Overview
A member of the RNA family "Alphaproteobacterial sRNA BjrC1505" from Pseudaminobacter soli, 140 nucleotides long. Pairs were carried over by alignment from the consensus structure. The literature on the family includes a 2012 paper in RNA Biol by Madhugiri et al., "Small RNAs of the Bradyrhizobium/Rhodopseudomonas lineage and their analysis". The family's RNA type in Rfam is small RNA. Lineage of the source: Bacteria > Pseudomonadati > Pseudomonadota > Alphaproteobacteria > Pseudaminobacter.

RNA sequence: CCCGUUAACCCUGCAUUAAGCCUUACGGGUGUUAAUUGGGGGCAUCCAGACAUCUGGAUUCUUACUGAGUGGUUGGAGCCACUUCGUUUGACGCCUCCCUGUUAGACUCUCGAGAGCCGCUUUCCAGCGGCUCUUUUUUU
Number, nucleotide and partner (000 for none) at each position: 001c040002c039003c038004g000005u000006u000007a000008a000009c000010c000011c000012u034013g033014c000015a000016u000017u000018a000019a030020g000021c028022c027023u000024u000025a000026c000027g022028g021029g000030u019031g000032u000033u013034a012035a000036u000037u000038g003039g002040g001041g000042g000043c000044a000045u058046c057047c056048a055049g000050a000051c000052a000053u000054c000055u048056g047057g046058a045059u000060u000061c000062u000063u000064a000065c000066u000067g084068a083069g082070u081071g080072g079073u000074u000075g000076g000077a000078g000079c072080c071081a070082c069083u068084u067085c000086g000087u000088u000089u000090g103091a102092c101093g100094c000095c000096u000097c000098c000099c000100u093101g092102u091103u090104a000105g000106a000107c000108u000109c000110u000111c000112g135113a134114g133115a132116g131117c130118c129119g128120c127121u126122u000123u000124c000125c000126a121127g120128c119129g118130g117131c116132u115133c114134u113135u112136u000137u000138u000139u000140u000